[Rfam]
RNA sequence: AUACUUACCUGGUGUCGGGGAAUCCGUGAUCCGCGAGGCGGAACCCCCAGGGUGAGGUGCGGCCAUUGCACUUCGGCCGUGUUGACCCCUGCCACUUUCUCAAACUGAGAUAGAUGGGACAUGCAAUUUUUGGUAGUGGGGGAUUGGCGUACGCGCUAUCCCCCU
Numbered sequence: 001a002u003a004c005u006u007a008c009c010u011g012g013u014g015u016c017g018g019g020g021a022a023u024c025c026g027u028g029a030u031c032c033g034c035g036a037g038g039c040g041g042a043a044c045c046c047c048c049a050g051g052g053u054g055a056g057g058u059g060c061g062g063c064c065a066u067u068g069c070a071c072u073u074c075g076g077c078c079g080u081g082u083u084g085a086c087c088c089c090u091g092c093c094a095c096u097u098u099c100u101c102a103a104a105c106u107g108a109g110a111u112a113g114a115u116g117g118g119a120c121a122u123g124c125a126a127u128u129u130u131u132g133g134u135a136g137u138g139g140g141g142g143a144u145u146g147g148c149g150u151a152c153g154c155g156c157u158a159u160c161c162c163c164c165u
Base pairs, nucleotide, nucleotide: 012122013121014120015119017047018046019045020044023042024041025040026039027038049090050089051088052087054086056083057082058081060079061078062077063076064075092117093116094115095113097110099109100108138164139163140162141161142160146157147156148155149154
A member of the RNA family "U1 spliceosomal RNA" from Ixodes scapularis, 165 nucleotides long.
From the family's description: U1 is a small nuclear RNA (snRNA) component of the spliceosome (involved in pre-mRNA splicing).
A search with the family's covariance model found it, with a score of 129 bits.
A reference for the family is Oubridge et al. (1994), "Crystal structure at 1.92 A resolution of the RNA-binding domain of the U1A spliceosomal protein complexed with an RNA hairpin", Nature.
Rfam 15.1 lists 40,184 matches to the family in 1,499 species.